mir-283 microRNA precursor family: a 98-nucleotide sequence from Tetracentron sinense. On this family, see Skalsky et al., BMC Genomics 2010: "Identification of microRNAs expressed in two mosquito vectors, Aedes albopictus and Culex quinquefasciatus". The source organism's lineage runs through Eukaryota, Streptophytina, Tracheophyta, Magnoliopsida and Tetracentron. A search with the family's covariance model found it, with a score of 54 bits.
[Rfam]
RNA sequence: UUAAAAAUUAAAAAAAUCAGAUUUCGGCCGAAAUUUCGAAAUCUGAAAUUUCACCUGAAAUUUUCGAAAUUUCGGCCGAAAUCUGAUUUUCGAAAUAA
Numbered sequence: 001u002u003a004a005a006a007a008u009u010a011a012a013a014a015a016a017u018c019a020g021a022u023u024u025c026g027g028c029c030g031a032a033a034u035u036u037c038g039a040a041a042u043c044u045g046a047a048a049u050u051u052c053a054c055c056u057g058a059a060a061u062u063u064u065c066g067a068a069a070u071u072u073c074g075g076c077c078g079a080a081a082u083c084u085g086a087u088u089u090u091c092g093a094a095a096u097a098a
Base pairs, nucleotide, nucleotide: 013090014089015088016087017086018085021082022081023080024079025078026077027076028075029074030073031072033070034069035068036067037066038065039064040063